RNA: SAM riboswitch aptamer (S box leader)
Organism: Clostridium acetireducens
RNA sequence: UUCUUAUCAAGAGCGGUGGAGGGACUGGCCCUAUGAAGCCCGACAACCGGUAUUUAUAAUACAUCGGUGUCAAAUCCUGCAGAAUCUUUGAUUUUGAAAGAUAAGAA
Numbered sequence: 001u002u003c004u005u006a007u008c009a010a011g012a013g014c015g016g017u018g019g020a021g022g023g024a025c026u027g028g029c030c031c032u033a034u035g036a037a038g039c040c041c042g043a044c045a046a047c048c049g050g051u052a053u054u055u056a057u058a059a060u061a062c063a064u065c066g067g068u069g070u071c072a073a074a075u076c077c078u079g080c081a082g083a084a085u086c087u088u089u090g091a092u093u094u095u096g097a098a099a100g101a102u103a104a105g106a107a
Stems, first nucleotide, its partner, number of pairs: 001107008013041001015040003021031003025079001027077002042071004047067002050062003075099001080096006